Notes:
A member of the RNA family "TPP riboswitch aptamer (THI element)" from Clostridium luticellarii, 102 nucleotides long. The source organism's lineage runs through Bacteria, Bacillota, Eubacteriales, Clostridiaceae and Clostridium. Its family is annotated with thiamine pyrophosphate binding in the Gene Ontology. It scores 67 bits against the family's covariance model. The family's consensus secondary structure is taken from published work.

[Rfam]
Nucleotides: 102
Stems, first nucleotide, its partner, number of pairs: 006091003011052004017027004034045004058083004064077004
Number, partner (000 for none) and nucleotide at each position: 001000c002000u003000g004000u005000a006091g007090u008089g009000u010000c011052a012051g013050g014049g015000g016000u017027g018026c019025c020024g021000g022000u023000a024020c025019g026018g027017c028000u029000g030000a031000g032000a033000a034045a035044a036043g037042u038000g039000a040000a041000a042037a043036c044035u045034u046000u047000a048000a049014c050013c051012c052011u053000u054000u055000g056000a057000a058083c059082c060081u061080g062000a063000u064077u065076c066075g067074g068000g069000c070000a071000g072000c073000g074067c075066c076065g077064a078000c079000g080061u081060a082059g083058g084000g085000a086000a087000a088000c089008c090007g091006c092000u093000u094000u095000a096000u097000a098000a099000u100000u101000u102000u